Small nucleolar RNA SNORA11: a 127-nucleotide RNA from Cicer arietinum.
The base pairs follow the family's consensus structure, which was predicted with RNAalifold.
Rfam describes the family as follows. U107 (SNORA11) is a member of the H/ACA class of snoRNAs that guide the sites of modification of uridines to pseudouridines. This snoRNA was identified by RT-PCR from blood cells and its expression confirmed by Northern blot analysis. There is no predicted target for this guide snRNA.
Gene Ontology terms of the family: RNA processing and nucleolus.
It scores 39 bits against the family's covariance model.
NCBI's taxonomy places the organism under Eukaryota, Viridiplantae, Magnoliopsida, Cicereae, Cicer.
On this family, see Gu et al., Nucleic Acids Res 2005: "A novel experimental approach for systematic identification of box H/ACA snoRNAs from eukaryotes".
Nucleotides: 127
Base pairs, nucleotide, nucleotide: 002053003052004051005050006049007048008047013042014041015040016039017038018037019036020035021034022032023031024030066120068118073113074112078109081102082101083100085097086096087095
Number, partner (000 for none) and nucleotide at each position: 001000u002053g003052g004051g005050u006049g007048u008047g009000c010000a011000u012000a013042u014041u015040a016039c017038a018037g019036c020035g021034c022032u023031u024030u025000c026000u027000c028000a029000a030024a031023a032022a033000a034021g035020c036019g037018c038017u039016g040015u041014a042013a043000a044000a045000u046000g047008c048007a049006c050005a051004c052003c053002c054000a055000u056000a057000a058000g059000u060000a061000a062000u063000u064000u065000u066120a067000u068118c069000u070000u071000u072000u073113u074112u075000a076000a077000u078109u079000g080000a081102u082101g083100a084000g085097a086096a087095u088000u089000u090000a091000a092000u093000u094000u095087a096086u097085u098000a099000g100083u101082u102081g103000u104000c105000u106000a107000u108000a109078a110000a111000c112074a113073a114000a115000a116000u117000u118068g119000c120066u121000u122000a123000a124000c125000c126000a127000a